[Rfam]
This 104-nucleotide sequence from Vulpes vulpes belongs to the Rfam family "mir-8834 microRNA precursor family". The base pairs follow the family's consensus structure, which was predicted with RNAalifold. The family has 2 seed sequences and 13,926 matches in Rfam 15.1. The organism belongs to Vulpes, within Eukaryota.

RNA sequence: AGGAACAAUAGCAGUGGGGUGGCCAGCGCUGGAGCCCUGGAUUCAGCUCCUGCAGUAACUACGGAGCUCUCAGUCUGCAGGGGCCUGGAUGCUCCUGGGGCGGG
Numbered sequence: 001a002g003g004a005a006c007a008a009u010a011g012c013a014g015u016g017g018g019g020u021g022g023c024c025a026g027c028g029c030u031g032g033a034g035c036c037c038u039g040g041a042u043u044c045a046g047c048u049c050c051u052g053c054a055g056u057a058a059c060u061a062c063g064g065a066g067c068u069c070u071c072a073g074u075c076u077g078c079a080g081g082g083g084c085c086u087g088g089a090u091g092c093u094c095c096u097g098g099g100g101c102g103g104g
Stems, first nucleotide, its partner, number of pairs: 002095003006091002009087003012083001016075002021070002025068003029064003033060001037055003